RNA sequence: CAGUUUUUAGAAUUUUUCUAGUAGGUUUUCUGAUUUUCAAUAGAAAACGCCCCC
Numbered sequence: 001c002a003g004u005u006u007u008u009a010g011a012a013u014u015u016u017u018c019u020a021g022u023a024g025g026u027u028u029u030c031u032g033a034u035u036u037u038c039a040a041u042a043g044a045a046a047a048c049g050c051c052c053c054c
Stems, first nucleotide, its partner, number of pairs: 024051003027046006034039001
The record is a 54-nucleotide RNA sequence from Pan troglodytes, which matches "U7 small nuclear RNA" in Rfam. From the family's description: Animal histone pre-mRNAs are spliced by a different mechanism than nuclear pre-mRNAs and self-splicing introns. This processing involves the U7 snRNP, which contains only one RNA species: U7. The 5' end of U7 RNA is thought to base-pair to a conserved spacer element downstream of the cleavage site in histone pre-mRNA. This family contains a number of annotated U7 pseudogenes.